[Rfam]
RNA sequence: AAGGCAGAUCGUUCUAUCGCUAUGCGCUCAAACGCAGAGAGGAAAGUCCGGGCAACAUAGAGCAUCCUGCUUCCUAACGGGAAGGCGCCUUCAGUGGGCGACAGCAAGUGCCACAGAGAAUAUACCGCCACGGCGUUAAAACCGGGGUAAGGGUGAAAAUGUGAGGUAAGAGCUCACAGCUAUGUAUGGCGACAUGCAUUGCGGUAAACCUCAGGAGUUGAAAAACCAAAUAGGUCCCGAAAGUGAGGCUGCUCGCUUCCGUGUGGUUCGUUUAGGCGGGCCAACGUUGGGAUGGGUAGGUUGAUAGAGCCGGACAGCAAUGUACGGAGCAGAUUAAUGAUAGAAACCCGGGAAACCGGAGGACAGAACCCGGCUUACAGAUGUGCUACUGAA
Numbered sequence: 001a002a003g004g005c006a007g008a009u010c011g012u013u014c015u016a017u018c019g020c021u022a023u024g025c026g027c028u029c030a031a032a033c034g035c036a037g038a039g040a041g042g043a044a045a046g047u048c049c050g051g052g053c054a055a056c057a058u059a060g061a062g063c064a065u066c067c068u069g070c071u072u073c074c075u076a077a078c079g080g081g082a083a084g085g086c087g088c089c090u091u092c093a094g095u096g097g098g099c100g101a102c103a104g105c106a107a108g109u110g111c112c113a114c115a116g117a118g119a120a121u122a123u124a125c126c127g128c129c130a131c132g133g134c135g136u137u138a139a140a141a142c143c144g145g146g147g148u149a150a151g152g153g154u155g156a157a158a159a160u161g162u163g164a165g166g167u168a169a170g171a172g173c174u175c176a177c178a179g180c181u182a183u184g185u186a187u188g189g190c191g192a193c194a195u196g197c198a199u200u201g202c203g204g205u206a207a208a209c210c211u212c213a214g215g216a217g218u219u220g221a222a223a224a225a226c227c228a229a230a231u232a233g234g235u236c237c238c239g240a241a242a243g244u245g246a247g248g249c250u251g252c253u254c255g256c257u258u259c260c261g262u263g264u265g266g267u268u269c270g271u272u273u274a275g276g277c278g279g280g281c282c283a284a285c286g287u288u289g290g291g292a293u294g295g296g297u298a299g300g301u302u303g304a305u306a307g308a309g310c311c312g313g314a315c316a317g318c319a320a321u322g323u324a325c326g327g328a329g330c331a332g333a334u335u336a337a338u339g340a341u342a343g344a345a346a347c348c349c350g351g352g353a354a355a356c357c358g359g360a361g362g363a364c365a366g367a368a369c370c371c372g373g374c375u376u377a378c379a380g381a382u383g384u385g386c387u388a389c390u391g392a393a
Base pairs, nucleotide, nucleotide: 003387004386005385006384008382009381010380011378012345013344014343015342016341017340018339020039021038023036024035025034026033044376045375046374048373049372050371051370052369053220054219055218056217065216066215067214068213069212070084071083072082073081074080085102086100087099088098089097103211104210108209109208110205111204112203125152126151127148128147129146131144132143133142160178161177162176163175164174165173182199183198184197185196186195187194188193224302225301226300227299234293235292236291237290238289239288272283310327311326312325314323315322316321
Dot-bracket structure: ..((((.(((((((((((.((.((((......)))).))....[[[.[[[[[((((........((((((((((.....)))))(((((.......)))).)((...(((((............(((((.(((........))).)))..)).......((((((.......))))))...(((((((....)))))))...)))..)))))))))))))...((((......((((((................................(..........)....)))))).....)))).......(((.(((....))).)))...........))))))).......................]]]]]]]].).))).))))......
Shown here is a 393-nucleotide RNA from Mucilaginibacter paludis, a member of the family "Bacterial RNase P class A". By type it is a ribozyme. The source organism's lineage runs through Bacteria, Bacteroidota, Sphingobacteriia, Sphingobacteriaceae and Mucilaginibacter paludis. Rfam describes the family as follows. Ribonuclease P (RNase P) is a ubiquitous endoribonuclease, found in archaea, bacteria and eukarya as well as chloroplasts and mitochondria. The base pairs follow the family's consensus structure, which is taken from published work.